Shown here is an 85-nucleotide RNA sequence from Bacillus salinus, a member of the family "c-di-GMP-I riboswitch aptamer".
Gene Ontology term of the family: cyclic-di-GMP binding.
Taxonomically the source falls in Bacillus (Bacteria, Bacillati, Bacilli, Caryophanales).
Nucleotides: 085
Stems, first nucleotide, its partner, number of pairs: 012037002017032006040079004047075002049071003056065002
Number, partner (000 for none) and nucleotide at each position: 001000c002000g003000u004000a005000c006000g007000a008000a009000a010000c011000g012037g013036c014000a015000a016000a017032a018031c019030c020029g021028u022027u023000g024000a025000a026000a027022a028021g029020c030019g031018g032017u033000g034000a035000c036013g037012c038000a039000a040079a041078g042077c043076u044000a045000c046000a047075g048074g049071g050070g051069c052000u053000a054000a055000c056065g057064u058000a059000u060000a061000a062000a063000a064057a065056c066000u067000a068000u069051g070050c071049c072000a073000g074048c075047c076043a077042g078041c079040u080000u081000c082000c083000g084000a085000a
The family's consensus secondary structure is taken from published work.